[Rfam]
Bacterial small signal recognition particle RNA: a 91-nucleotide RNA from Bradymonas sediminis.
The organism belongs to Bradymonas, within Bacteria.
Pairs were carried over by alignment from the consensus structure, which is taken from published work.
About the family: The signal recognition particle (SRP) is a universally conserved ribonucleoprotein involved in the co-translational targeting of proteins to membranes.
By type it is a non-coding RNA gene.

RNA sequence: UGAGCGGUCAGCGGGACCACCGAUUCGGUACCCCGUCAGGCCCGGGAGGGAGCAGCGGACUGGACACGGGGUGUCCGCUGACCGCUCAGGG
Numbered sequence: 001u002g003a004g005c006g007g008u009c010a011g012c013g014g015g016a017c018c019a020c021c022g023a024u025u026c027g028g029u030a031c032c033c034c035g036u037c038a039g040g041c042c043c044g045g046g047a048g049g050g051a052g053c054a055g056c057g058g059a060c061u062g063g064a065c066a067c068g069g070g071g072u073g074u075c076c077g078c079u080g081a082c083c084g085c086u087c088a089g090g091g
Base pairs, nucleotide, nucleotide: 001088002087003086004085005084008081009080010079011078012077013076016072017071018070020068024064025063026062027061028060033058034057035056036055041050042049043048
Dot-bracket structure: (((((..((((((..(((.(...(((((....((((....(((....)))....)))).)))))...).)))...))))))..)))))...